[Rfam]
A member of the RNA family "Small nucleolar RNA snR60/Z15/Z230/Z193/J17" from Cylindrodendrum hubeiense, 103 nucleotides long. Taxonomically the source falls in Cylindrodendrum (Eukaryota, Fungi, saccharomyceta, Pezizomycotina). By type it is a C/D-box small nucleolar RNA. The literature on the family includes a 2003 paper in Nucleic Acids Res by Chen et al., "The high diversity of snoRNAs in plants: identification and comparative study of 120 snoRNA genes from Oryza sativa". Gene Ontology terms of the family: nucleolus and RNA processing. The pairing is the family consensus, mapped onto this sequence.

RNA sequence: CGGUGUUUUAUGAUGAUAUCCAUACCUAAUGCAUAGUUCAUCUGAAUCUACUGAAGACAACGCAUACCUUCAAUUCUUUCGCUCCCAUCUGACUCAAACACCU
Number, nucleotide and partner (000 for none) at each position: 001c000002g000003g000004u100005g099006u098007u097008u096009u000010a000011u000012g000013a000014u000015g000016a000017u000018a000019u000020c000021c000022a000023u000024a000025c000026c000027u000028a000029a000030u000031g000032c000033a000034u000035a000036g000037u000038u000039c000040a000041u000042c000043u000044g000045a000046a000047u000048c000049u000050a000051c000052u000053g000054a000055a000056g000057a000058c000059a000060a000061c000062g000063c000064a000065u000066a000067c000068c000069u000070u000071c000072a000073a000074u000075u000076c000077u000078u000079u000080c000081g000082c000083u000084c000085c000086c000087a000088u000089c000090u000091g000092a000093c000094u000095c000096a008097a007098a006099c005100a004101c000102c000103u000